[Rfam]
RNA: Rhizobiales sRNA Atu_At1
RNA sequence: GCAGCGAGCGCGUCAACCGGACGUGGCGGCAGAGGGAACAGGAUGGUUUUUCCGGUUUCCCAUCCUGACCAACGAAAUGGUAGCCGAGCCCUUAUCCCGCCCGCUUC
Numbered sequence: 001g002c003a004g005c006g007a008g009c010g011c012g013u014c015a016a017c018c019g020g021a022c023g024u025g026g027c028g029g030c031a032g033a034g035g036g037a038a039c040a041g042g043a044u045g046g047u048u049u050u051u052c053c054g055g056u057u058u059c060c061c062a063u064c065c066u067g068a069c070c071a072a073c074g075a076a077a078u079g080g081u082a083g084c085c086g087a088g089c090c091c092u093u094a095u096c097c098c099g100c101c102c103g104c105u106u107c
Base pairs, nucleotide, nucleotide: 006106007105008104009103011023012022013021014020025101026100027099028097029096033092034091035090036089039067040066041065042064043063044062045061068081069080070079
Dot-bracket structure: .....((((.((((.....)))).(((((...((((..(((((((...............)))))))(((........))).......))))...)).))).)))).